[Rfam]
RNA sequence: UCCCGUUCAGUUCUCCGACUCUCAUUUUCCGCGAGGAAUGUCUGCUGCAGACCUCUCAACAAUGGCUGACACUUCACGAUACGUCGCAUCCGAGCCUGUAUCAGGACCUCGUGCUUGCCGCGGUUGGAGCUAUCGCGAUCUAUGGUUGUCUAUACCAGACAAUGCAGUCUAGUUGAGAGAAUGAGUUUCGGAACUUAACCCUAAGUAGCCCU
Numbered sequence: 001u002c003c004c005g006u007u008c009a010g011u012u013c014u015c016c017g018a019c020u021c022u023c024a025u026u027u028u029c030c031g032c033g034a035g036g037a038a039u040g041u042c043u044g045c046u047g048c049a050g051a052c053c054u055c056u057c058a059a060c061a062a063u064g065g066c067u068g069a070c071a072c073u074u075c076a077c078g079a080u081a082c083g084u085c086g087c088a089u090c091c092g093a094g095c096c097u098g099u100a101u102c103a104g105g106a107c108c109u110c111g112u113g114c115u116u117g118c119c120g121c122g123g124u125u126g127g128a129g130c131u132a133u134c135g136c137g138a139u140c141u142a143u144g145g146u147u148g149u150c151u152a153u154a155c156c157a158g159a160c161a162a163u164g165c166a167g168u169c170u171a172g173u174u175g176a177g178a179g180a181a182u183g184a185g186u187u188u189c190g191g192a193a194c195u196u197a198a199c200c201c202u203a204a205g206u207a208g209c210c211c212u
Stems, first nucleotide, its partner, number of pairs: 009195003015191004
RNA: Ascomycota telomerase RNA, nucleotides 210 to 421
Organism: Colletotrichum sublineola